[Rfam]
RNA sequence: UCGUUAUCAAGAAAGGUUGAGGGAUUAGACCCGUUGAAACCUUGGCAACCCUCCUUUUGGAGAAGGUGCUACAUUCUACCACUUUAUUGUGGAUAGAUAACUG
Dot-bracket structure: (.((((((....(((((...(((..[[[[)))......)))))((((.((((((....))))..))))))...(]]]]((((......))))..))))))).)
The record is a 103-nucleotide RNA from Salinimicrobium marinum, which matches "SAM riboswitch aptamer (S box leader)" in Rfam. The match comes from Rfam's covariance-model search (81 bits). The family's consensus secondary structure is taken from published work.